[Rfam]
RNA: Bacterial large signal recognition particle RNA
RNA sequence: CCGUGCUAGACGGGGAGAUGGCGGUGCCCUGUAACCCGCAAUCCGCCAUAGCGGGGUUGAAUUCCUGCUUGAGGUAUCAACAUGUGAGGUCUGCCUUGUUUAAAGAGGCGUUGAAAAUUGGGUCCUUCGCAAUGGAAAGCUGUGAACCUGGUCAGGUCCGGAAGGAAGCAGCCAUAAGGAGUUUCUUCCAUGUGCCGAAGGGGAGCCUAAUUUGAGCUGGCUUUAGCAAGUAACGCUUGUUUGUUUUUAUCGAUAGCAGGUGCACGG
Number, nucleotide and partner (000 for none) at each position: 001c267002c266003g265004u264005g263006c262007u000008a000009g058010a057011c056012g030013g029014g028015g027016a000017g025018a000019u023020g000021g000022c000023g019024g000025u017026g000027c015028c014029c013030u012031g000032u000033a000034a000035c055036c054037c053038g052039c051040a000041a000042u000043c000044c000045g000046c000047c000048a000049u000050a000051g039052c038053g037054g036055g035056g011057u010058u009059g000060a000061a000062u000063u000064c260065c259066u258067g257068c256069u255070u000071g000072a000073g251074g250075u249076a248077u000078c000079a245080a244081c243082a242083u000084g240085u239086g238087a237088g236089g000090u000091c000092u232093g231094c000095c000096u229097u228098g227099u226100u225101u000102a000103a000104a222105g221106a000107g218108g217109c216110g000111u000112u000113g000114a000115a213116a212117a211118u210119u209120g208121g207122g206123u205124c201125c200126u199127u198128c197129g196130c192131a191132a000133u190134g189135g188136a187137a186138a183139g182140c181141u180142g000143u178144g000145a000146a000147c000148c000149u174150g173151g172152u171153c000154a000155g000156g000157u166158c165159c164160g000161g000162a000163a000164g159165g158166a157167a000168g000169c000170a000171g152172c151173c150174a149175u000176a000177a000178g143179g000180a141181g140182u139183u138184u000185c000186u137187u136188c135189c134190a133191u131192g130193u000194g000195c000196c129197g128198a127199a126200g125201g124202g000203g000204a000205g123206c122207c121208u120209a119210a118211u117212u116213u115214g000215a000216g109217c108218u107219g000220g000221c105222u104223u000224u000225a100226g099227c098228a097229a096230g000231u093232a092233a000234c000235g000236c088237u087238u086239g085240u084241u000242u082243g081244u080245u079246u000247u000248u076249a075250u074251c073252g000253a000254u000255a069256g068257c067258a066259g065260g064261u000262g006263c005264a004265c003266g002267g001